[Rfam]
RNA sequence: AAAACAAUUAAAGCGCCAGUACUGAAGAAAUUGACGUCGUUCAUCUUCAGUAGACGAGGUGGAGGAGUAUCGAAUUUUCGGCGGAUGCCUCCCGAUCGACAUUGCCCGAUUGUAUUUUUUGCUUGUAAAACGUUUAAGUGAUUGAACGGACAAAGAAGCAAAAAGGCGAAAUU
Numbered sequence: 001a002a003a004a005c006a007a008u009u010a011a012a013g014c015g016c017c018a019g020u021a022c023u024g025a026a027g028a029a030a031u032u033g034a035c036g037u038c039g040u041u042c043a044u045c046u047u048c049a050g051u052a053g054a055c056g057a058g059g060u061g062g063a064g065g066a067g068u069a070u071c072g073a074a075u076u077u078u079c080g081g082c083g084g085a086u087g088c089c090u091c092c093c094g095a096u097c098g099a100c101a102u103u104g105c106c107c108g109a110u111u112g113u114a115u116u117u118u119u120u121g122c123u124u125g126u127a128a129a130a131c132g133u134u135u136a137a138g139u140g141a142u143u144g145a146a147c148g149g150a151c152a153a154a155g156a157a158g159c160a161a162a163a164a165g166g167c168g169a170a171a172u173u
Stems, first nucleotide, its partner, number of pairs: 020052008029044001061092005070081004093112006117163007131148007

Annotation
glmS glucosamine-6-phosphate activated ribozyme aptamer: a 173-nucleotide sequence from Filibacter tadaridae. The base pairs follow the family's consensus structure, which is taken from published work. It scores 124 bits against the family's covariance model.